[Rfam]
RNA: Glycine riboswitch aptamer
RNA sequence: GCACAUCUGAAAAGCGGGCCGGGCGACCGGUCCCACCCACGGUGCAAGUCCGCCCGCCGCGCGCGGGUCAUGGCGAACCUCUCAGGUCCCGAUGACAGAUGGGGAGGA
Numbered sequence: 001g002c003a004c005a006u007c008u009g010a011a012a013a014g015c016g017g018g019c020c021g022g023g024c025g026a027c028c029g030g031u032c033c034c035a036c037c038c039a040c041g042g043u044g045c046a047a048g049u050c051c052g053c054c055c056g057c058c059g060c061g062c063g064c065g066g067g068u069c070a071u072g073g074c075g076a077a078c079c080u081c082u083c084a085g086g087u088c089c090c091g092a093u094g095a096c097a098g099a100u101g102g103g104g105a106g107g108a
Base pairs, nucleotide, nucleotide: 002103004101005100006099007098008097009096016033017032018031019030035087036086037085039082042081044079048074049073